[Rfam]
RNA sequence: GGAGUCGGCCAGACAGUCGCUGCUGCAAGGCAGAGGAAAGUCCGGGCUCCGCAGGGCAAGGUGCCAGGUAACGCCUGGGAGGCGCGAGCCUACGGAAAGUGCCACAGAAAAUAUACCGCCCGUCGUGACGGGUAAGGGUGAAAUGGUGCGGUAAGAGCGCACCGCGCCGGUGGCAACAUCGGUGGCAGGGCAAACCCCACCUGGAGCAAGACCGAAUAGGGGGACCAUGGCGCGGCCCGCGUUGUCCCCGGGUAGGUUGCUAGAGGCGUCCGGUGACGGGCGUCCCAGAGGAAUGACUGUCCACGACAGAACCCGGCUUACCGGCCGACUCCCACC
Number, nucleotide and partner (000 for none) at each position: 001g332002g331003a330004g329005u328006c327007g326008g325009c324010c323011a000012g301013a300014c299015a298016g297017u296018c295019g000020c033021u032022g031023c030024u029025g000026c000027a000028a000029g024030g023031c022032a021033g020034a000035g000036g000037a000038a319039a318040g317041u000042c316043c315044g314045g313046g312047c206048u205049c204050c203051g000052c000053a000054g238055g237056g236057c235058a000059a202060g201061g200062u199063g198064c078065c077066a076067g075068g074069u000070a000071a000072c000073g000074c068075c067076u066077g065078g064079g093080a091081g090082g089083c088084g000085c000086g000087a000088g083089c082090c081091u080092a000093c079094g197095g196096a000097a000098a000099g195100u194101g191102c190103c189104a000105c000106a000107g000108a000109a000110a000111a000112u000113a000114u000115a000116c137117c136118g133119c132120c131121c130122g129123u128124c000125g000126u000127g000128a123129c122130g121131g120132g119133u118134a000135a000136g117137g116138g000139u000140g000141a000142a000143a000144u000145g163146g162147u161148g160149c159150g158151g000152u000153a000154a000155g000156a000157g000158c150159g149160c148161a147162c146163c145164g186165c184166g183167c182168c181169g180170g179171u178172g177173g000174c000175a000176a000177c172178a171179u170180c169181g168182g167183u166184g165185g000186c164187a000188g000189g103190g102191c101192a000193a000194a100195c099196c095197c094198c063199a062200c061201c060202u059203g050204g049205a048206g047207c000208a000209a000210g258211a257212c256213c255214g000215a000216a000217u000218a000219g000220g249221g248222g247223g246224a245225c244226c000227a000228u000229g243230g242231c241232g240233c239234g000235g057236c056237c055238c054239g233240c232241g231242u230243u229244g225245u224246c223247c222248c221249c220250g000251g000252g000253u000254a000255g213256g212257u211258u210259g000260c000261u000262a000263g000264a000265g284266g283267c282268g281269u280270c279271c278272g277273g000274u000275g000276a000277c272278g271279g270280g269281c268282g267283u266284c265285c000286c000287a000288g000289a000290g000291g000292a000293a000294u000295g018296a017297c016298u015299g014300u013301c012302c000303a000304c000305g000306a000307c000308a000309g000310a000311a000312c046313c045314c044315g043316g042317c040318u039319u038320a000321c000322c000323g010324g009325c008326c007327g006328a005329c004330u003331c002332c001333c000334a000335c000336c000
Overview
The family of this 336-nucleotide RNA from Acidiferrobacter sp. SPIII_3 is "Bacterial RNase P class A". The family's consensus secondary structure is taken from published work. The family's RNA type in Rfam is ribozyme. Rfam describes the family as follows. Ribonuclease P (RNase P) is a ubiquitous endoribonuclease, found in archaea, bacteria and eukarya as well as chloroplasts and mitochondria. A reference for the family is Frank and Pace (1998), "Ribonuclease P: unity and diversity in a tRNA processing ribozyme", Annu Rev Biochem. NCBI's taxonomy places the organism under Bacteria, Gammaproteobacteria, Acidiferrobacterales, Acidiferrobacteraceae, Acidiferrobacter.